[Rfam]
The record is a 147-nucleotide RNA from Nocardioides daedukensis, which matches "ALIL pseudoknot" in Rfam. The family's consensus secondary structure is taken from published work. By type it is a cis-regulatory element. Its family is annotated with positive regulation of translational frameshifting in the Gene Ontology.
RNA sequence: GGCUUUCUUCGCGGCGGAGCUCGACCGCCCCACGAACAAGUAGUCGCCUACAUCGACGCCCACCGCCACGACGUGGUCGAUGGGCGCGAGGUCGGGGUCGAGCCGAUCUGCGCGGUGUUGAAGAACGCCGGCGUGCAGAUCGCCCCG
Dot-bracket structure: ............(((((.......)))))...............................................................(((((......((.(((((((...................))))))).)))))))